Caenorhabditis snoRNA ceN45: a 123-nucleotide RNA sequence. The family's RNA type in Rfam is H/ACA-box small nucleolar RNA. On this family, see Jia et al., BMC Mol Biol 2007: "Systematic identification of non-coding RNA 2,2,7-trimethylguanosine cap structures in Caenorhabditis elegans". A search with the family's covariance model found it, with a score of 91 bits. Its family is annotated with RNA processing and nucleolus in the Gene Ontology. Pairs were carried over by alignment from the consensus structure, which was predicted with RNAalifold.

RNA sequence: UAGGGGCACAGAGUUGCAUUUGUUCGAAACAAGAUCAUGUGCGCUAAGUUGCCCCGAAAUGGAAUCGGGUUAUAAGAAAAUUGUGCUUGUCGUCGAGUACCAUUGAUAUCAAUUCGAACAUUU
Numbered sequence: 001u002a003g004g005g006g007c008a009c010a011g012a013g014u015u016g017c018a019u020u021u022g023u024u025c026g027a028a029a030c031a032a033g034a035u036c037a038u039g040u041g042c043g044c045u046a047a048g049u050u051g052c053c054c055c056g057a058a059a060u061g062g063a064a065u066c067g068g069g070u071u072a073u074a075a076g077a078a079a080a081u082u083g084u085g086c087u088u089g090u091c092g093u094c095g096a097g098u099a100c101c102a103u104u105g106a107u108a109u110c111a112a113u114u115c116g117a118a119c120a121u122u123u
Stems, first nucleotide, its partner, number of pairs: 003055006009048001012045003016042003021037002024034002066116006074109001076107001081102001083100006